[Rfam]
RNA sequence: UGGGGUCGCUAAGUAGUAGUGCCGCAGGUAAUGGCUGUUAAAUAUCACGUUACCUGGACAAGGCUACUUAAUGUUCCCU
Dot-bracket structure: .((((.(..((((((((.......((((((....................))))))......))))))))..).)))).
Background:
This 79-nucleotide RNA from Daphnia magna belongs to the Rfam family "mir-252 microRNA precursor family". Clan: mir-252 microRNA precursor family. A reference for the family is Li et al. (2009), "Direct sequencing and expression analysis of a large number of miRNAs in Aedes aegypti and a multi-species survey of novel mosquito miRNAs", BMC Genomics. The family's consensus secondary structure was predicted with RNAalifold. Rfam links the family to the GO terms miRNA-mediated post-transcriptional gene silencing and RISC complex. The organism belongs to Daphnia, within Eukaryota.